[Rfam]
RNA sequence: CCCCCUGGCAGUGGGCAAGGAGACACCUGAUUGGUGGUGUUGCUAUUAUAUCAAUCCAGGGCAAAGCAGGUAUACAGUCCUUAGUUUAUCCUAGCUUGAUGCCUGUGUCAGUGGCCAGAGCUGUUUCAUGCCUGAGCCACAUAA
Numbered sequence: 001c002c003c004c005c006u007g008g009c010a011g012u013g014g015g016c017a018a019g020g021a022g023a024c025a026c027c028u029g030a031u032u033g034g035u036g037g038u039g040u041u042g043c044u045a046u047u048a049u050a051u052c053a054a055u056c057c058a059g060g061g062c063a064a065a066g067c068a069g070g071u072a073u074a075c076a077g078u079c080c081u082u083a084g085u086u087u088a089u090c091c092u093a094g095c096u097u098g099a100u101g102c103c104u105g106u107g108u109c110a111g112u113g114g115c116c117a118g119a120g121c122u123g124u125u126u127c128a129u130g131c132c133u134g135a136g137c138c139a140c141a142u143a144a
Stems, first nucleotide, its partner, number of pairs: 003061006012053003018047002022041006084138001086136002098132001100130001104128002109123002112120001
The family of this 144-nucleotide RNA from Myotis myotis is "Small nucleolar RNA SNORA48".
It is annotated as an H/ACA-box small nucleolar RNA.
Lineage of the source: Eukaryota > Craniata > Sarcopterygii > Laurasiatheria > Myotis.
From the family's description: The snoRNA ACA 48 has been identified to guide pseudouridylation of the residue U3797 in the 28S rRNA subunit.
The family's consensus secondary structure was predicted with RNAalifold.
For this family Rfam cites "Mapping to nucleotide resolution of pseudouridine residues in large subunit ribosomal RNAs from representative eukaryotes, prokaryotes, archaebacteria, mitochondria and chloroplasts" (Ofengand and Bakin, J Mol Biol, 1997).
Rfam links the family to the GO terms nucleolus and RNA processing.